[Rfam]
Nucleotides: 083
Stems, first nucleotide, its partner, number of pairs: 010074001016068009026058010
Number, partner (000 for none) and nucleotide at each position: 001000u002000g003000g004000a005000a006000c007000a008000a009000u010074c011000c012000u013000u014000g015000a016068a017067g018066c019065u020064c021063a022062g023061g024060a025000g026058g027057g028056a029055u030054a031053g032052c033051g034050c035049c036000u037000c038000g039000g040000u041000a042000c043000c044000a045000g046000u047000u048000a049035g050034g051033c052032g053031c054030u055029a056028u057027c058026u059000a060024u061023c062022c063021u064020g065019a066018g067017c068016u069000c070000c071000a072000c073000g074010g075000u076000u077000u078000g079000u080000u081000c082000u083000u